[Rfam]
RNA: Glycine riboswitch aptamer
Organism: Peptoclostridium litorale
RNA sequence: AAGAAGGGUAUGCGAGAGAGCUGGCAGGUUUGAAUUUGCCGGCCGCCGAAGGGACAAGUCUUUAUUUUACCAAAAUACAAGAUGAAAUUCUCAGGCAGAAGGAUCAUAUCUGGACA
Numbered sequence: 001a002a003g004a005a006g007g008g009u010a011u012g013c014g015a016g017a018g019a020g021c022u023g024g025c026a027g028g029u030u031u032g033a034a035u036u037u038g039c040c041g042g043c044c045g046c047c048g049a050a051g052g053g054a055c056a057a058g059u060c061u062u063u064a065u066u067u068u069a070c071c072a073a074a075a076u077a078c079a080a081g082a083u084g085a086a087a088u089u090c091u092c093a094g095g096c097a098g099a100a101g102g103a104u105c106a107u108a109u110c111u112g113g114a115c116a
Base pairs, nucleotide, nucleotide: 006111007110008109009108010107011106012105020043021042022041023040024039025038026037027036028035045096046095047094048092049091052090053089054088058083059082060081061080062079